[Rfam]
RNA sequence: CGGAGGACUGAGAAGGUGGGGCAGUUCUGUACCAUGCUGCCUUCCACUGGUUAAGACCUCCAAGAGCAAAGGCCUACCAAGGUAGAAGAUGUCCCUCUGUCACCUGUAGAGGGGCAGCACUGAGCUGGCCGACAUUUG
Numbered sequence: 001c002g003g004a005g006g007a008c009u010g011a012g013a014a015g016g017u018g019g020g021g022c023a024g025u026u027c028u029g030u031a032c033c034a035u036g037c038u039g040c041c042u043u044c045c046a047c048u049g050g051u052u053a054a055g056a057c058c059u060c061c062a063a064g065a066g067c068a069a070a071g072g073c074c075u076a077c078c079a080a081g082g083u084a085g086a087a088g089a090u091g092u093c094c095c096u097c098u099g100u101c102a103c104c105u106g107u108a109g110a111g112g113g114g115c116a117g118c119a120c121u122g123a124g125c126u127g128g129c130c131g132a133c134a135u136u137u138g
Stems, first nucleotide, its partner, number of pairs: 002061005015048004019042007081130003086126001090122002097117005103112002

Shown here is a 138-nucleotide sequence from Myotis lucifugus, a member of the family "Small nucleolar RNA SNORA47".
The family has 20 seed sequences and 733 matches in Rfam 15.1.
Lineage of the source: Eukaryota > Chordata > Sarcopterygii > Dipnotetrapodomorpha > Myotis.
Rfam classes the family as an H/ACA-box small nucleolar RNA.
On this family, see Huttenhofer et al., EMBO J 2001: "RNomics: an experimental approach that identifies 201 candidates for novel, small, non-messenger RNAs in mouse".